[Rfam]
RNA sequence: UGGGCAGUAUCAUUUAGAACUGCACCUUUUACUUGGAAUCCAAGUUAUUCAAUUAUUACUGCCUGUAUCCAUGUGGAAUAGGACAGAGGG
Numbered sequence: 001u002g003g004g005c006a007g008u009a010u011c012a013u014u015u016a017g018a019a020c021u022g023c024a025c026c027u028u029u030u031a032c033u034u035g036g037a038a039u040c041c042a043a044g045u046u047a048u049u050c051a052a053u054u055a056u057u058a059c060u061g062c063c064u065g066u067a068u069c070c071a072u073g074u075g076g077a078a079u080a081g082g083a084c085a086g087a088g089g090g
Stems, first nucleotide, its partner, number of pairs: 002026002004023005010018002059086003062082005068077003
Rfam assigns this 90-nucleotide RNA from Desulfitobacterium dichloroeliminans to the family "pan motif". The family's RNA type in Rfam is cis-regulatory element.